[Rfam]
RNA sequence: ACCUUCUGCAUUAACAGAACACUGCUAUAAUUGUGUGAUCCAGAUUUAAUCUGUUUCAUGCAAUAAUGCUAGCAGAGUAUUGCGUGGAAGAAGAUUGUUAGCCACUGUACUGAAAAUGAGAUGUGGUGGAACCUCUUUCUUAAUGUUCAGUGGCCUCUGUCUCAAGGUGCAGUGCCACACUU
Number, nucleotide and partner (000 for none) at each position: 001a000002c000003c000004u000005u000006c000007u000008g000009c000010a000011u000012u000013a000014a000015c000016a000017g000018a000019a000020c077021a000022c000023u074024g073025c072026u071027a070028u000029a000030a067031u066032u065033g064034u000035g000036u058037g057038a056039u000040c000041c053042a052043g051044a050045u049046u000047u000048a000049a045050u044051c043052u042053g041054u000055u000056u038057c037058a036059u000060g000061c000062a000063a000064u033065a032066a031067u030068g000069c000070u027071a026072g025073c024074a023075g000076a000077g020078u000079a000080u000081u000082g000083c000084g000085u000086g000087g000088a000089a000090g000091a000092a000093g000094a000095u000096u000097g000098u000099u000100a000101g176102c000103c174104a173105c172106u171107g170108u169109a168110c000111u000112g000113a000114a000115a000116a000117u000118g000119a000120g000121a000122u000123g000124u153125g000126g151127u000128g000129g148130a147131a146132c000133c000134u000135c000136u000137u000138u000139c000140u000141u000142a000143a000144u000145g000146u131147u130148c129149a000150g000151u126152g000153g124154c000155c000156u000157c000158u000159g000160u000161c000162u000163c000164a000165a000166g000167g000168u109169g108170c107171a106172g105173u104174g103175c000176c101177a000178c000179a000180c000181u000182u000